[Rfam]
RNA: Archaeal large subunit ribosomal RNA, nucleotides 672 to 930
Organism: Nitrosotalea sinensis
RNA sequence: GAGCUUACUGUUAUGGCGAGCCUAAAUCUGCAAAAGAUGGAGGCGAAGGGAAACCAAGUUCCCGCAGUGAAUAACGAGGGGAAGCGUGUGAAAGUGCGUAGAGUCAUAGCGGUAAGGCUAGAAACCAGACGAUCUAUCCCUGAACAAGACGAAGUUGGGCGAAAGCCUGAUGGAGGUCUGAAGCAGUUCUAACGUGCAAUUUGUUUGUCUGAUUUGGGGAUAGGGGUCAAAAACCAAUCUAGUCUGGUGAUCGCUAGUU
Numbered sequence: 001g002a003g004c005u006u007a008c009u010g011u012u013a014u015g016g017c018g019a020g021c022c023u024a025a026a027u028c029u030g031c032a033a034a035a036g037a038u039g040g041a042g043g044c045g046a047a048g049g050g051a052a053a054c055c056a057a058g059u060u061c062c063c064g065c066a067g068u069g070a071a072u073a074a075c076g077a078g079g080g081g082a083a084g085c086g087u088g089u090g091a092a093a094g095u096g097c098g099u100a101g102a103g104u105c106a107u108a109g110c111g112g113u114a115a116g117g118c119u120a121g122a123a124a125c126c127a128g129a130c131g132a133u134c135u136a137u138c139c140c141u142g143a144a145c146a147a148g149a150c151g152a153a154g155u156u157g158g159g160c161g162a163a164a165g166c167c168u169g170a171u172g173g174a175g176g177u178c179u180g181a182a183g184c185a186g187u188u189c190u191a192a193c194g195u196g197c198a199a200u201u202u203g204u205u206u207g208u209c210u211g212a213u214u215u216g217g218g219g220a221u222a223g224g225g226g227u228c229a230a231a232a233a234c235c236a237a238u239c240u241a242g243u244c245u246g247g248u249g250a251u252c253g254c255u256a257g258u259u
Stems, first nucleotide, its partner, number of pairs: 005115013020044004026038004048055002060082004067075002085098004118257002121254001125247006134223011145211001147179004154171007183208004189203001191202002225235003